[Rfam]
RNA sequence: UAAUACUCAUCGGGGUGCUGGUGUAAUCACUGGCUGAGAUUGGGCUUGUGCCCGGAACCCGUAGACCUGAACCAGAUAAUACUGGCGUAGGAAUUGAGUCAGGAUACCUG
Numbered sequence: 001u002a003a004u005a006c007u008c009a010u011c012g013g014g015g016u017g018c019u020g021g022u023g024u025a026a027u028c029a030c031u032g033g034c035u036g037a038g039a040u041u042g043g044g045c046u047u048g049u050g051c052c053c054g055g056a057a058c059c060c061g062u063a064g065a066c067c068u069g070a071a072c073c074a075g076a077u078a079a080u081a082c083u084g085g086c087g088u089a090g091g092a093a094u095u096g097a098g099u100c101a102g103g104a105u106a107c108c109u110g
Base pairs, nucleotide, nucleotide: 006098007097008096009095011061012060013059014058016055017034018033019032020031021030041054042053043052044051045050066091067090068089069088072085073084074083075082
Rfam assigns this 110-nucleotide sequence from Vibrio sediminis to the family "TPP riboswitch aptamer (THI element)". Rfam links the family to the GO term thiamine pyrophosphate binding. The family's consensus secondary structure is taken from published work.